[Rfam]
The record is a 177-nucleotide RNA sequence from Chrysochloris asiatica, which matches "Small nucleolar RNA SNORA81" in Rfam.
On this family, see Gu et al., Nucleic Acids Res 2005: "A novel experimental approach for systematic identification of box H/ACA snoRNAs from eukaryotes".
By type it is an H/ACA-box small nucleolar RNA.
RNA sequence: ACCUUCUUGUUUAAGCUCUGUGCUGAAAUGUCAGAAACUAGUAUCAAGUCUUAGUGUUUGUAAUAAAAGCUAAUGGAGUAAACAUAAGAGAAGCAACUGUACCAGGUGGGAGAAGGAUUGAGACGAACCUCUCACCUAAGUCCAGAGUACUUUGUUCUAAAAUGUAGCAUAAGAAAU
Numbered sequence: 001a002c003c004u005u006c007u008u009g010u011u012u013a014a015g016c017u018c019u020g021u022g023c024u025g026a027a028a029u030g031u032c033a034g035a036a037a038c039u040a041g042u043a044u045c046a047a048g049u050c051u052u053a054g055u056g057u058u059u060g061u062a063a064u065a066a067a068a069g070c071u072a073a074u075g076g077a078g079u080a081a082a083c084a085u086a087a088g089a090g091a092a093g094c095a096a097c098u099g100u101a102c103c104a105g106g107u108g109g110g111a112g113a114a115g116g117a118u119u120g121a122g123a124c125g126a127a128c129c130u131c132u133c134a135c136c137u138a139a140g141u142c143c144a145g146a147g148u149a150c151u152u153u154g155u156u157c158u159a160a161a162a163u164g165u166a167g168c169a170u171a172a173g174a175a176a177u
Stems, first nucleotide, its partner, number of pairs: 018078002021075002024072002029067001031065001034058002037055005043049002098171003102167001104165001106163001120148001125143001127141001